[Rfam]
A member of the RNA family "Actino-pnp RNA" from Vallicoccus soli, 62 nucleotides long.
The source organism's lineage runs through Bacteria, Bacillati, Actinomycetota, Actinomycetes and Vallicoccus.
Pairs were carried over by alignment from the consensus structure, which is taken from published work.
The match comes from Rfam's covariance-model search (59 bits).

RNA sequence: ACCGGUCCUCGGUAGUGGCCCCCGGGCGGCACGCCCCCCGGGCGCUUCCAUCGAAGACCGGA
Numbered sequence: 001a002c003c004g005g006u007c008c009u010c011g012g013u014a015g016u017g018g019c020c021c022c023c024g025g026g027c028g029g030c031a032c033g034c035c036c037c038c039c040g041g042g043c044g045c046u047u048c049c050a051u052c053g054a055a056g057a058c059c060g061g062a
Stems, first nucleotide, its partner, number of pairs: 002061006009054005017046003021042006028035002